dinG RNA: a 101-nucleotide RNA from Pseudobacteroides cellulosolvens. The base pairs follow the family's consensus structure, which is taken from published work. Lineage of the source: Bacteria > Eubacteriales > Oscillospiraceae > Pseudobacteroides > Pseudobacteroides cellulosolvens.
[Rfam]
RNA sequence: AAUUAUACUUCCGUCUGGCUAUCUUCACCGACAAGGGACGGCCUGCUAAAUUUGGCAGGAAAACGCACGCCAAAAUUUGAGAGAAAAUUGCGGGGGCUUUU
Number, nucleotide and partner (000 for none) at each position: 001a000002a000003u000004u000005a000006u000007a000008c000009u000010u000011c041012c040013g039014u038015c037016u000017g000018g000019c000020u000021a000022u000023c000024u000025u000026c000027a000028c000029c000030g000031a000032c000033a000034a000035g000036g000037g015038a014039c013040g012041g011042c059043c058044u057045g056046c055047u054048a000049a000050a000051u000052u000053u000054g047055g046056c045057a044058g043059g042060a101061a100062a099063a098064c000065g097066c096067a000068c000069g000070c093071c000072a000073a000074a089075a088076u087077u086078u000079g000080a000081g000082a000083g000084a000085a000086a077087a076088u075089u074090g000091c000092g000093g070094g000095g000096g066097c065098u063099u062100u061101u060